[Rfam]
L2-Alphaproteobacteria ribosomal protein leader: a 72-nucleotide sequence from Limimaricola cinnabarinus. The source organism's lineage runs through Bacteria, Pseudomonadota, Rhodobacterales, Paracoccaceae and Limimaricola cinnabarinus. By type it is a cis-regulatory leader. For this family Rfam cites "Discovery of 20 novel ribosomal leader candidates in bacteria and archaea" (Eckert and Weinberg, BMC Microbiol, 2020).
RNA sequence: GGGGACCUUCGGGGCCCUAAUCACAACCGGGCCAUCCAUUCGGGAUCGCCCGCAAAGCAACGGAAGACACAA
Numbered sequence: 001g002g003g004g005a006c007c008u009u010c011g012g013g014g015c016c017c018u019a020a021u022c023a024c025a026a027c028c029g030g031g032c033c034a035u036c037c038a039u040u041c042g043g044g045a046u047c048g049c050c051c052g053c054a055a056a057g058c059a060a061c062g063g064a065a066g067a068c069a070c071a072a
Stems, first nucleotide, its partner, number of pairs: 001018004006014003029051004034046004